[Rfam]
RNA sequence: CACAACGUCUCUCAUCCUUGCGAUGUCUGACACACCUUCCCCCCGUCCCAUCUCACACAUAGAUGGGAAUGGCAGAGACGACAUGCGGUUUUUGUCGAUGUCUUUUGUCCGCUACUGCCCUGCUUCGAUCUCGAGGCAGAGGAAACAUAAAACUAAUCUCAGAG
Numbered sequence: 001c002a003c004a005a006c007g008u009c010u011c012u013c014a015u016c017c018u019u020g021c022g023a024u025g026u027c028u029g030a031c032a033c034a035c036c037u038u039c040c041c042c043c044c045g046u047c048c049c050a051u052c053u054c055a056c057a058c059a060u061a062g063a064u065g066g067g068a069a070u071g072g073c074a075g076a077g078a079c080g081a082c083a084u085g086c087g088g089u090u091u092u093u094g095u096c097g098a099u100g101u102c103u104u105u106u107g108u109c110c111g112c113u114a115c116u117g118c119c120c121u122g123c124u125u126c127g128a129u130c131u132c133g134a135g136g137c138a139g140a141g142g143a144a145a146c147a148u149a150a151a152a153c154u155a156a157u158c159u160c161a162g163a164g
Stems, first nucleotide, its partner, number of pairs: 007033002012030003016025001018023001038081002040077001042075001043072004047067004055060001097158003100153002103151003106147003118142002120139004129135001
Rfam assigns this 164-nucleotide part of an RNA from Cadophora malorum to the family "Ascomycota telomerase RNA". Its family is annotated with telomerase activity, telomerase catalytic core complex and telomere maintenance via telomerase in the Gene Ontology. Taxonomically the source falls in Cadophora (Eukaryota, Fungi, Pezizomycotina, Leotiomycetes). Clan: Telomerase clan. The base pairs follow the family's consensus structure.